[Rfam]
RNA sequence: UCGGUCCCGGUUCACGUCUCGGCAACUCCGUCGUGGCGACCCGGCACC
Numbered sequence: 001u002c003g004g005u006c007c008c009g010g011u012u013c014a015c016g017u018c019u020c021g022g023c024a025a026c027u028c029c030g031u032c033g034u035g036g037c038g039a040c041c042c043g044g045c046a047c048c
Stems, first nucleotide, its partner, number of pairs: 003048003007044004015038004020033004
L31-Actinobacteria ribosomal protein leader: a 48-nucleotide RNA from Streptomyces beijiangensis.
Its Rfam clan is "Ribosomal Protein L31 Leader clan".
It scores 50 bits against the family's covariance model.
The base pairs follow the family's consensus structure, which is taken from published work.
By type it is a cis-regulatory leader.
Taxonomically the source falls in Streptomyces (Bacteria, Bacillati, Actinomycetes, Streptomycetaceae).